Shown here is a 108-nucleotide RNA from Pelotomaculum thermopropionicum, a member of the family "SAM riboswitch aptamer (S box leader)".
The sequence is in the family's curated seed alignment.
Gene Ontology term of the family: regulation of gene expression.
RNA sequence: UUCUUAUCGAGAGAAGGGGAGGGACGGACCCAAUGAACCUUCGGCAACCUUCAGGCUUGAAGGCCUGAAAAGGUGCCAAUUUCCGCCGGGUAACCGGAGAGAUAAGAA
Numbered sequence: 001u002u003c004u005u006a007u008c009g010a011g012a013g014a015a016g017g018g019g020a021g022g023g024a025c026g027g028a029c030c031c032a033a034u035g036a037a038c039c040u041u042c043g044g045c046a047a048c049c050u051u052c053a054g055g056c057u058u059g060a061a062g063g064c065c066u067g068a069a070a071a072g073g074u075g076c077c078a079a080u081u082u083c084c085g086c087c088g089g090g091u092a093a094c095c096g097g098a099g100a101g102a103u104a105a106g107a108a
Base pairs, nucleotide, nucleotide: 001108002107003106004105005104006103007102008101013042014041015040016039017038021031022030023029025085026084027083028082043077044076045075046074048073049072050069051068052067053066054065055064081100086097087096088095089094